[Rfam]
RNA: U11 spliceosomal RNA
RNA sequence: UGAAAGGGCUUCUGCCGUGCGUGGCACGGGGGGGCUGCGGCCAGCCCCGCGGAAUCGACAUCAAGAGAUUUCGGAAGCACAAUUUUUGUGGGGGGGGUCGCCGGAUAAAAAAAUAUUUUCCCGGGUAACU
Numbered sequence: 001u002g003a004a005a006g007g008g009c010u011u012c013u014g015c016c017g018u019g020c021g022u023g024g025c026a027c028g029g030g031g032g033g034g035c036u037g038c039g040g041c042c043a044g045c046c047c048c049g050c051g052g053a054a055u056c057g058a059c060a061u062c063a064a065g066a067g068a069u070u071u072c073g074g075a076a077g078c079a080c081a082a083u084u085u086u087u088g089u090g091g092g093g094g095g096g097g098u099c100g101c102c103g104g105a106u107a108a109a110a111a112a113a114u115a116u117u118u119u120c121c122c123g124g125g126u127a128a129c130u
Base pairs, nucleotide, nucleotide: 008078009077010076011075012074013026014025015024016023017022027049028048029047030046031045033042034041035040050073051072052071053070054069055068056067096130097129098128100126101124102123103122104121107119108118109117110116